[Rfam]
Nucleotides: 076
Stems, first nucleotide, its partner, number of pairs: 001076003007070002011066007019058008028049005
Number, partner (000 for none) and nucleotide at each position: 001076u002075u003074g004000a005000c006000a007070u008069u009000u010000u011066c012065u013064u014063u015062g016061g017060u018000u019058a020057u021056c022055u023054a024053g025052c026051u027000g028049u029048a030047u031046g032045a033000g034000u035000g036000a037000c038000u039000u040000g041000g042000a043000c044000a045032u046031c047030a048029u049028a050000a051026a052025g053024c054023u055022a056021g057020g058019u059000u060017a061016c062015c063014g064013g065012a066011g067000u068000u069008a070007a071000c072000a073000c074003c075002a076001a
A member of the RNA family "mir-9/mir-79 microRNA precursor family" from Sitophilus oryzae, 76 nucleotides long. Taxonomically the source falls in Sitophilus (Eukaryota, Bilateria, Pterygota, Neoptera). The family has 214 seed sequences and 5,647 matches in Rfam 15.1. It scores 65 bits against the family's covariance model.